Rfam assigns this 86-nucleotide RNA sequence from Schmidtea mediterranea to the family "mir-2147 microRNA precursor family". The base pairs follow the family's consensus structure, which was predicted with RNAalifold. Taxonomically the source falls in Schmidtea (Eukaryota, Eumetazoa, Spiralia, Rhabditophora). Its family is annotated with RISC complex and miRNA-mediated post-transcriptional gene silencing in the Gene Ontology. The sequence is in the family's curated seed alignment.
[Rfam]
RNA sequence: UUUGGAACGUUAACAUCGGAAAACCCGCAUUGCGUUAUUGUCAACCUCACAAUUUCGCUGUGAGUGUUCCCAUGUUAGCUCCCAUU
Numbered sequence: 001u002u003u004g005g006a007a008c009g010u011u012a013a014c015a016u017c018g019g020a021a022a023a024c025c026c027g028c029a030u031u032g033c034g035u036u037a038u039u040g041u042c043a044a045c046c047u048c049a050c051a052a053u054u055u056c057g058c059u060g061u062g063a064g065u066g067u068u069c070c071c072a073u074g075u076u077a078g079c080u081c082c083c084a085u086u
Stems, first nucleotide, its partner, number of pairs: 003084003007080001011077005018070004023065002026062004032058003037053005